[Rfam]
MIR7504 microRNA precursor family: a 123-nucleotide sequence from Gossypium australe. The family's consensus secondary structure was predicted with RNAalifold. The family has 8 seed sequences and 7,343 matches in Rfam 15.1.
RNA sequence: AAUAAAAGAAUGACAAAUCAAAUUUUUUCUCUUGAUUUUUAGCAUUUUGAGUUGGAUUUAAUUUUUUUCAGGAGAAAAAAGCUAAAAAUCAAGAGUAAAAAUCUGAUUUUUCAUUCUUCCAUU
Dot-bracket structure: (((..((((((((.((((((.((((((.(((((((((((.((..((((...........................))))..)).))))))))))).)))))).)))))).))))))))..)))